Small nucleolar RNA SNORA40: a 127-nucleotide sequence from Echinops telfairi.
Rfam's curators write: The snoRNA ACA 40 belongs to the H/ACA family of snoRNAs and guides the pseudouridylation of 28S rRNA subunit at position U4565.
NCBI's taxonomy places the organism under Eukaryota, Metazoa, Theria, Afrotheria, Echinops.
RNA sequence: UGCAUUUGUGUUUGUGUUUGUUUAAUUAGUGGACAAACACUCAAAGACAGGUGCAAGAAUAAAUCCUCUUUUGCAACCCAAAACUCAUUGUGCAGUAUGAGUUUUGAUACAGAUAAGAAGGGACAUG
Numbered sequence: 001u002g003c004a005u006u007u008g009u010g011u012u013u014g015u016g017u018u019u020g021u022u023u024a025a026u027u028a029g030u031g032g033a034c035a036a037a038c039a040c041u042c043a044a045a046g047a048c049a050g051g052u053g054c055a056a057g058a059a060u061a062a063a064u065c066c067u068c069u070u071u072u073g074c075a076a077c078c079c080a081a082a083a084c085u086c087a088u089u090g091u092g093c094a095g096u097a098u099g100a101g102u103u104u105u106g107a108u109a110c111a112g113a114u115a116a117g118a119a120g121g122g123a124c125a126u127g
Base pairs, nucleotide, nucleotide: 001055002054003053004052005051006050007049008048009047011045014040015039016038017037018036019035020034021033026031064123065122066121067120069118070117071116072115073114079106080105081104082103083102084101085100086099087098088097